[Rfam]
RNA sequence: AUUCGAAAAAGGCAAGUCCGUUGAAAGGCGGAUACGCAAAGUUCCGGGCCUACGGUGUUAUUCACUACGGCGGCCGAACUGCUGAA
Numbered sequence: 001a002u003u004c005g006a007a008a009a010a011g012g013c014a015a016g017u018c019c020g021u022u023g024a025a026a027g028g029c030g031g032a033u034a035c036g037c038a039a040a041g042u043u044c045c046g047g048g049c050c051u052a053c054g055g056u057g058u059u060a061u062u063c064a065c066u067a068c069g070g071c072g073g074c075c076g077a078a079c080u081g082c083u084g085a086a
Base pairs, nucleotide, nucleotide: 012037013036017032018031019030020029021028022027040080041079042078043077045076046075047074048071049070050069055065056064057063
RNA: c-di-GMP-I riboswitch aptamer
Organism: Planococcus halotolerans